[Rfam]
RNA sequence: AUACUCUGGUUUCUCUUCAGAUCAUACAAAUCUCUCACCCUUUACUAAAGAUUUCUUUGAAGAGGAACAAUUCUAAGUCUUAACCCAAUUUUUUAGGCCCUGUAUCUACAAGGC
Numbered sequence: 001a002u003a004c005u006c007u008g009g010u011u012u013c014u015c016u017u018c019a020g021a022u023c024a025u026a027c028a029a030a031u032c033u034c035u036c037a038c039c040c041u042u043u044a045c046u047a048a049a050g051a052u053u054u055c056u057u058u059g060a061a062g063a064g065g066a067a068c069a070a071u072u073c074u075a076a077g078u079c080u081u082a083a084c085c086c087a088a089u090u091u092u093u094u095a096g097g098c099c100c101u102g103u104a105u106c107u108a109c110a111a112g113g114c
Base pairs, nucleotide, nucleotide: 003078004077005076009068010067011066012065013064014063015062016061017060018059019058028054029053030052031051032050033049035047096114098113099112101110102109103108
Shown here is a 114-nucleotide RNA from Papio anubis, a member of the family "U5 spliceosomal RNA". It is annotated as a spliceosomal small nuclear RNA. NCBI's taxonomy places the organism under Eukaryota, Chordata, Boreoeutheria, Cercopithecinae, Papio. It scores 73 bits against the family's covariance model. Rfam's curators write: U5 RNA is a component of both types of known spliceosome.